Annotation: The family of this 78-nucleotide RNA from Megasphaera sp. AM44-1BH is "ZMP/ZTP riboswitch aptamer (pfl RNA motif)".

[Rfam]
RNA sequence: ACGUAGUCAUGUGACUGACGGAAGUGGACUAACCACAUGGAGCAUGAUCUGAAGAAGCCGACCGUCUGGGCAAAUAGU
Numbered sequence: 001a002c003g004u005a006g007u008c009a010u011g012u013g014a015c016u017g018a019c020g021g022a023a024g025u026g027g028a029c030u031a032a033c034c035a036c037a038u039g040g041a042g043c044a045u046g047a048u049c050u051g052a053a054g055a056a057g058c059c060g061a062c063c064g065u066c067u068g069g070g071c072a073a074a075u076a077g078u
Base pairs, nucleotide, nucleotide: 006048007047008046009045010044011043012042015039017066018065019064020063021062024036025035026034027033057071058070059069